Record summary
The record is an 81-nucleotide RNA from Trichonephila clavata, which matches "bantam microRNA precursor family" in Rfam. Pairs were carried over by alignment from the consensus structure, which was predicted with RNAalifold. NCBI's taxonomy places the organism under Eukaryota, Eumetazoa, Bilateria, Orbiculariae, Trichonephila.

[Rfam]
RNA sequence: GUGCUUAGACAAAACUGGUUUUCUCAAUGAUCGUCCAGAAGAUUUGAAAUCUGAGAUCAUUGUGAAAGCUGAUUUUGUUGG
Numbered sequence: 001g002u003g004c005u006u007a008g009a010c011a012a013a014a015c016u017g018g019u020u021u022u023c024u025c026a027a028u029g030a031u032c033g034u035c036c037a038g039a040a041g042a043u044u045u046g047a048a049a050u051c052u053g054a055g056a057u058c059a060u061u062g063u064g065a066a067a068g069c070u071g072a073u074u075u076u077g078u079u080g081g
Stems, first nucleotide, its partner, number of pairs: 009078006016071008025062001028059005